[Rfam]
A member of the RNA family "SAM riboswitch aptamer (S box leader)" from Sporolactobacillus shoreae, 108 nucleotides long.
About the family: The SAM riboswitch is found upstream of a number of genes which code for proteins involved in methionine or cysteine biosynthesis in Gram-positive bacteria.
Lineage of the source: Bacteria > Bacillati > Bacilli > Caryophanales > Sporolactobacillus.
Its family is annotated with regulation of gene expression in the Gene Ontology.
RNA sequence: CUCUUAUUCCGAGUAGGCGGAGGGACAGGCCCGAUGAAGCCCGGCAACCGGCCGAUAUGGCACGGUGCUAACCUGCAGAGGAACAGAUUGUCCUUCUGAUAAUAAGAG
Number, nucleotide and partner (000 for none) at each position: 001c108002u107003c106004u105005u104006a103007u102008u101009c000010c000011g000012a000013g042014u000015a000016g041017g040018c039019g000020g000021a000022g032023g031024g030025a000026c075027a074028g073029g072030c024031c023032c022033g000034a000035u000036g000037a000038a000039g018040c017041c016042c013043g069044g068045c067046a066047a000048c065049c064050g061051g000052c059053c000054g000055a000056u000057a000058u000059g052060g000061c050062a000063c000064g049065g048066u046067g045068c044069u043070a000071a000072c029073c028074u027075g026076c098077a097078g096079a095080g094081g093082a000083a000084c000085a000086g000087a000088u000089u000090g000091u000092c000093c081094u080095u079096c078097u077098g076099a000100u000101a008102a007103u006104a005105a004106g003107a002108g001